A member of the RNA family "RNase MRP" from Colocasia esculenta, 258 nucleotides long.

RNA sequence: GGGUUGCAGGAUGAAGUGGCUAGGCCCAUUAACUCUUAACCCAGAGUGGGCUUUGGAAAGUCUCCGGGCCUGGGCCACAGAAAUGCGGGCUUAGAAAUAAGUUUGGGUCGAAGUAGGGUUCGAUGCUGAGACAUGUUUGUGGAGCCGUUUGAAAAAUCUUGCGCUUGACCCAUUAGUGGCCAAUUAUUACAGUUAUCCACUUGGUCCCAUUUCAUUUCAGAGUGGGAUUAACAAAACGGAGAUUACAAUCUUGCAACC
Numbered sequence: 001g002g003g004u005u006g007c008a009g010g011a012u013g014a015a016g017u018g019g020c021u022a023g024g025c026c027c028a029u030u031a032a033c034u035c036u037u038a039a040c041c042c043a044g045a046g047u048g049g050g051c052u053u054u055g056g057a058a059a060g061u062c063u064c065c066g067g068g069c070c071u072g073g074g075c076c077a078c079a080g081a082a083a084u085g086c087g088g089g090c091u092u093a094g095a096a097a098u099a100a101g102u103u104u105g106g107g108u109c110g111a112a113g114u115a116g117g118g119u120u121c122g123a124u125g126c127u128g129a130g131a132c133a134u135g136u137u138u139g140u141g142g143a144g145c146c147g148u149u150u151g152a153a154a155a156a157u158c159u160u161g162c163g164c165u166u167g168a169c170c171c172a173u174u175a176g177u178g179g180c181c182a183a184u185u186a187u188u189a190c191a192g193u194u195a196u197c198c199a200c201u202u203g204g205u206c207c208c209a210u211u212u213c214a215u216u217u218c219a220g221a222g223u224g225g226g227a228u229u230a231a232c233a234a235a236a237c238g239g240a241g242a243u244u245a246c247a248a249u250c251u252u253g254c255a256a257c258c
Stems, first nucleotide, its partner, number of pairs: 002258010014202006022053009058244002062241004076087001078085002088103006105164001107162001111160003114156001119153004125145002133140002204228009
Record summary:
The organism belongs to Colocasia, within Eukaryota. By type it is a ribozyme. A reference for the family is Schmitt et al. (1993), "Secondary structure of RNase MRP RNA as predicted by phylogenetic comparison", FASEB J. Rfam links the family to the GO terms rRNA processing, ribonuclease MRP complex and ribonuclease MRP activity. The match comes from Rfam's covariance-model search (66 bits).